[Rfam]
RNA sequence: GAGGGUCAUGUGAUGAUUAAACGCAUAGUUCAGAUGAUAAUCAGUGAUUAUAAAUUUGAAAGUCUUUCGCUCCUAUCUGAUGACUCUC
Number, nucleotide and partner (000 for none) at each position: 001g000002a000003g000004g085005g084006u083007c082008a081009u000010g000011u000012g000013a000014u000015g000016a000017u000018u000019a000020a000021a000022c000023g000024c000025a000026u000027a000028g000029u000030u000031c000032a000033g000034a000035u000036g000037a000038u000039a000040a000041u000042c000043a000044g000045u000046g000047a000048u000049u000050a000051u000052a000053a000054a000055u000056u000057u000058g000059a000060a000061a000062g000063u000064c000065u000066u000067u000068c000069g000070c000071u000072c000073c000074u000075a000076u000077c000078u000079g000080a000081u008082g007083a006084c005085u004086c000087u000088c000
RNA: Small nucleolar RNA snR60/Z15/Z230/Z193/J17